The family of this 57-nucleotide RNA sequence from Lactuca sativa is "Plastid-psbA-3 3UTR RNA". The literature on the family includes a 2023 paper in Plant Commun by Richter et al., "Retrograde signaling in plants: A critical review focusing on the GUN pathway and beyond". Taxonomically the source falls in Lactuca (Eukaryota, Euphyllophyta, Mesangiospermae, Cichorioideae). Pairs were carried over by alignment from the consensus structure, which was predicted with LocARNA. By type it is a cis-regulatory element.
RNA sequence: AAAGGAGCAAUAACGCCCUUUUGAUAAAACAAGAGGGAAGUUAUUGCUCCUUUUAAU
Dot-bracket structure: ((((((((((((((...((((((......))))))....))))))))))))))....